[Rfam]
RNA: Small nucleolar RNA SNORA48
Organism: Pipistrellus kuhlii
RNA sequence: ACCCCCUGGCAAUAGGCAAGGAGACACCUGAUUGAUGGUGUUGCUCUUAUAUCAAUCAGGGGCAAAGCAGAUGUACAGCCCUUAGUUCAUCCUAGCUCGAUGCCUGUGUCCGUGGCCAUAGCUGUUUCAUGCCUGAGGCACAUUA
Numbered sequence: 001a002c003c004c005c006c007u008g009g010c011a012a013u014a015g016g017c018a019a020g021g022a023g024a025c026a027c028c029u030g031a032u033u034g035a036u037g038g039u040g041u042u043g044c045u046c047u048u049a050u051a052u053c054a055a056u057c058a059g060g061g062g063c064a065a066a067g068c069a070g071a072u073g074u075a076c077a078g079c080c081c082u083u084a085g086u087u088c089a090u091c092c093u094a095g096c097u098c099g100a101u102g103c104c105u106g107u108g109u110c111c112g113u114g115g116c117c118a119u120a121g122c123u124g125u126u127u128c129a130u131g132c133c134u135g136a137g138g139c140a141c142a143u144u145a
Base pairs, nucleotide, nucleotide: 003062004061005060006059007058008057013054015052019048020047021046023042024041025040026039027038028037085139086138087137099133101131105129106128108127111124112123